[Rfam]
Nucleotides: 208
Stems, first nucleotide, its partner, number of pairs: 004030002032188006042099005100173003108146003149167004
Number, partner (000 for none) and nucleotide at each position: 001000a002000g003000g004030c005029c006000a007000c008000g009000g010000u011000u012000a013000c014000g015000a016000a017000a018000c019000c020000c021000g022000a023000a024000a025000g026000g027000c028000a029005g030004g031000a032188g033187c034186g035185g036184g037183g038000g039000a040000a041000c042099c043098a044097a045096g046095u047000g048000g049000a050000a051000u052000g053000c054000c055000g056000u057000c058000c059000c060000g061000g062000g063000c064000g065000u066000c067000c068000g069000c070000a071000u072000g073000u074000c075000g076000c077000g078000g079000a080000c081000a082000u083000c084000c085000g086000a087000u088000a089000a090000c091000g092000a093000c094000g095046g096045c097044u098043u099042g100173g101172g102171g103000u104000g105000a106000a107000g108146c109145c110144g111000u112000g113000c114000c115000c116000g117000c118000c119000u120000c121000c122000u123000c124000g125000a126000u127000a128000c129000c130000c131000g132000a133000g134000g135000a136000g137000u138000c139000g140000a141000c142000g143000c144110c145109g146108g147000c148000c149167g150166g151165g152164c153000g154000a155000g156000a157000c158000u159000c160000u161000c162000c163000a164152g165151c166150c167149c168000g169000a170000a171102u172101c173100c174000g175000a176000c177000a178000g179000c180000u181000c182000a183037c184036u185035u186034c187033g188032u189000a190000g191000g192000c193000g194000u195000g196000g197000g198000a199000g200000a201000a202000g203000g204000a205000a206000a207000a208000a